[Rfam]
RNA sequence: GGCUCGGGCGCAGGCCGGUGGGACGGUCUGCAAGAAUGGAGCUCGCGCUUCUGUUUCGCAAGCGGCGGCACGGCCGAGGCCCCACGGCACGCGCG
Dot-bracket structure: (((((....((((((((......)))))))).......)))))........................((.(.((((........))))..).)).
This 95-nucleotide RNA belongs to the Rfam family "Rhodo-rpoB RNA". By type it is a cis-regulatory element.